[Rfam]
RNA sequence: AACCGCAGGGAACUGCUGCUGCUGAUAUAUUUUUAUUUACUGACCUAUAUCACAGUGGCUGUUCUUUUUGGUU
Numbered sequence: 001a002a003c004c005g006c007a008g009g010g011a012a013c014u015g016c017u018g019c020u021g022c023u024g025a026u027a028u029a030u031u032u033u034u035a036u037u038u039a040c041u042g043a044c045c046u047a048u049a050u051c052a053c054a055g056u057g058g059c060u061g062u063u064c065u066u067u068u069u070g071g072u073u
Stems, first nucleotide, its partner, number of pairs: 004070002007067007016058006023052002026049004
Dot-bracket structure: ...((.(((((((..((((((.((.((((................)))).))))))))..))))))).))...
mir-6 microRNA precursor family: a 73-nucleotide sequence from Drosophila busckii.
A reference for the family is Mourelatos et al. (2002), "miRNPs: a novel class of ribonucleoproteins containing numerous microRNAs", Genes Dev.
A search with the family's covariance model found it, with a score of 82 bits.
The base pairs follow the family's consensus structure, which was predicted with PFOLD.
Gene Ontology terms of the family: RISC complex and miRNA-mediated post-transcriptional gene silencing.
Clan: mir-6 clan.
Rfam describes the family as follows. This family consists of the microRNA (miRNA) precursor mir-6 which appears to be Drosophila specific. Animal miRNAs are transcribed as ~70nt precursors and subsequently processed by the Dicer enzyme to give a ~22nt product. In this case the mature sequence comes from the 3' arm of the precursor. The extents of the hairpin precursors are not generally known and are estimated based on hairpin prediction.